[Rfam]
RNA sequence: UUUUAACCUGAUGAGCAUUAACUUUCGCCCCUAUCUGAAAAUUGAAACUUCUCUUGUUGAAUGCGAGAUUGGUCUUACUGAAAAAACAA
Numbered sequence: 001u002u003u004u005a006a007c008c009u010g011a012u013g014a015g016c017a018u019u020a021a022c023u024u025u026c027g028c029c030c031c032u033a034u035c036u037g038a039a040a041a042u043u044g045a046a047a048c049u050u051c052u053c054u055u056g057u058u059g060a061a062u063g064c065g066a067g068a069u070u071g072g073u074c075u076u077a078c079u080g081a082a083a084a085a086a087c088a089a
Base pairs, nucleotide, nucleotide: 001086002085003084004083
Rfam assigns this 89-nucleotide sequence from Drosophila willistoni to the family "Small nucleolar RNA Me28S-Gm1083".
For this family Rfam cites "Genome-wide analyses of two families of snoRNA genes from Drosophila melanogaster, demonstrating the extensive utilization of introns for coding of snoRNAs" (Huang et al., RNA, 2005).
By type it is a C/D-box small nucleolar RNA.
Pairs were carried over by alignment from the consensus structure.